[Rfam]
RNA sequence: AUCAUCUUGUCGGAGUGCCUGCAUUCCACAAACGCAUUCGCGAUGCCUCAGGGUAACGCGAAGGCGAUGUGGGAAAGGCUGAGACCGUUAAUUCGGGAUCCGCGGAACCUGAUCAGGUUAAGACCUGCGAAGGGAACAAGAGUAAUUCUGCU
Numbered sequence: 001a002u003c004a005u006c007u008u009g010u011c012g013g014a015g016u017g018c019c020u021g022c023a024u025u026c027c028a029c030a031a032a033c034g035c036a037u038u039c040g041c042g043a044u045g046c047c048u049c050a051g052g053g054u055a056a057c058g059c060g061a062a063g064g065c066g067a068u069g070u071g072g073g074a075a076a077g078g079c080u081g082a083g084a085c086c087g088u089u090a091a092u093u094c095g096g097g098a099u100c101c102g103c104g105g106a107a108c109c110u111g112a113u114c115a116g117g118u119u120a121a122g123a124c125c126u127g128c129g130a131a132g133g134g135a136a137c138a139a140g141a142g143u144a145a146u147u148c149u150g151c152u
Stems, first nucleotide, its partner, number of pairs: 006140005011102004016096001017079004086095002108133003114127004
RNA: TPP riboswitch aptamer (THI element)